[Rfam]
RNA sequence: GGUGAUGAGUGACAACGAGAGAGAGCACGCCGGUUGGCAUUCAUGAGAGGUUUUGGGCAUGACGGUUCACUGGCGUGCUCUAUCUCGCUGUCAUUCCUUG
Numbered sequence: 001g002g003u004g005a006u007g008a009g010u011g012a013c014a015a016c017g018a019g020a021g022a023g024a025g026c027a028c029g030c031c032g033g034u035u036g037g038c039a040u041u042c043a044u045g046a047g048a049g050g051u052u053u054u055g056g057g058c059a060u061g062a063c064g065g066u067u068c069a070c071u072g073g074c075g076u077g078c079u080c081u082a083u084c085u086c087g088c089u090g091u092c093a094u095u096c097c098u099u100g
Stems, first nucleotide, its partner, number of pairs: 010093005016087002020083001023080001025078010